[Rfam]
RNA sequence: UUUUUAGUAUAAGUAUCUCCUAUAUAAUGUUUGGGACAUAUUUAUACUAAAA
Numbered sequence: 001u002u003u004u005u006a007g008u009a010u011a012a013g014u015a016u017c018u019c020c021u022a023u024a025u026a027a028u029g030u031u032u033g034g035g036a037c038a039u040a041u042u043u044a045u046a047c048u049a050a051a052a
Base pairs, nucleotide, nucleotide: 006048007047008046009045010044011043012042014040015039016038018036019035020034021033022031

The record is a 52-nucleotide sequence from Odocoileus virginianus, which matches "mir-1302 microRNA precursor family" in Rfam. A search with the family's covariance model found it, with a score of 67 bits. NCBI's taxonomy places the organism under Eukaryota, Deuterostomia, Amniota, Laurasiatheria, Odocoileus virginianus. The base pairs follow the family's consensus structure, which was predicted with WAR.